RNA sequence: UGGUUUCCUGCUUCAACAGUGCUUGGAGGAAACCC
Numbered sequence: 001u002g003g004u005u006u007c008c009u010g011c012u013u014c015a016a017c018a019g020u021g022c023u024u025g026g027a028g029g030a031a032a033c034c035c
Base pairs, nucleotide, nucleotide: 002035003034005032006031008029012027013026014025015024016023017021
RNA: Iron response element I